Shown here is a 66-nucleotide RNA from Taibaiella soli, a member of the family "Fluoride riboswitch aptamer (crcB RNA motif)". The family's consensus secondary structure is taken from published work. The match comes from Rfam's covariance-model search (51 bits).
RNA sequence: UUGCAGGAAGGAAAUGGUGUCUUCCUAACUGAACCGCUUGAGAAAGCUGAUGGCGCCUACAACAUA
Numbered sequence: 001u002u003g004c005a006g007g008a009a010g011g012a013a014a015u016g017g018u019g020u021c022u023u024c025c026u027a028a029c030u031g032a033a034c035c036g037c038u039u040g041a042g043a044a045a046g047c048u049g050a051u052g053g054c055g056c057c058u059a060c061a062a063c064a065u066a
Stems, first nucleotide, its partner, number of pairs: 010025004016057006036047004
Dot-bracket structure: .........[[[[..((((((]]]]..........((((....))))....)))))).........